[Rfam]
RNA sequence: AAGACAUCAUGAUCAGUGUAUCAUAUGUUGU
Dot-bracket structure: (.(((((.((((((...).)))))))))).)
Numbered sequence: 001a002a003g004a005c006a007u008c009a010u011g012a013u014c015a016g017u018g019u020a021u022c023a024u025a026u027g028u029u030g031u
Stems, first nucleotide, its partner, number of pairs: 001031001003029005009024005014018001

This 31-nucleotide RNA from Diabrotica virgifera belongs to the Rfam family "Iron response element II". NCBI's taxonomy places the organism under Eukaryota, Opisthokonta, Altocrustacea, Chrysomeloidea, Diabrotica virgifera. Rfam's curators write: IRE, TFRC, SLC40A1, SDHB, SLC11A2, CDC42BPA, ACO2, ALAS2_H.SAPIENS, CDC14A, EPAS1, ALAS2, qoxD, Hao1, NDUFS1, transferrin, Aconitate. Its family is annotated with response to iron ion in the Gene Ontology. A reference for the family is Walden et al. (2012), "Accommodating variety in iron-responsive elements: Crystal structure of transferrin receptor 1 B IRE bound to iron regulatory protein 1", FEBS Lett.